[Rfam]
RNA: MIR2629 microRNA precursor family
Organism: Medicago truncatula
RNA sequence: UUUUUUCUUUUUCGUCGGCAGUUAACUGCAGUCGGUUUCUUACUUCGGUAGUUAACCGUUGCAGGGGCAU
Numbered sequence: 001u002u003u004u005u006u007c008u009u010u011u012u013c014g015u016c017g018g019c020a021g022u023u024a025a026c027u028g029c030a031g032u033c034g035g036u037u038u039c040u041u042a043c044u045u046c047g048g049u050a051g052u053u054a055a056c057c058g059u060u061g062c063a064g065g066g067g068c069a070u
Base pairs, nucleotide, nucleotide: 012066013065015063016061017060018059019058021056022055023054024053025052026051027050028049029048